[Rfam]
RNA sequence: UAACCCUGACAAGUGGUAAGAUAAGCAAGGGCUAGGGCUUACGACCUAAGGUCUGAGGAUGGAGCCAGGUCAGGGCAU
Numbered sequence: 001u002a003a004c005c006c007u008g009a010c011a012a013g014u015g016g017u018a019a020g021a022u023a024a025g026c027a028a029g030g031g032c033u034a035g036g037g038c039u040u041a042c043g044a045c046c047u048a049a050g051g052u053c054u055g056a057g058g059a060u061g062g063a064g065c066c067a068g069g070u071c072a073g074g075g076c077a078u
Base pairs, nucleotide, nucleotide: 004075005074006073007072008071009070010069015066016065017064021060022059026055027054030053031052032051033050035047036046037045039044
Record summary: The record is a 78-nucleotide RNA from Tetranychus urticae, which matches "mir-5729 microRNA precursor family" in Rfam. A search with the family's covariance model found it, with a score of 42 bits. Pairs were carried over by alignment from the consensus structure, which was predicted with RNAalifold.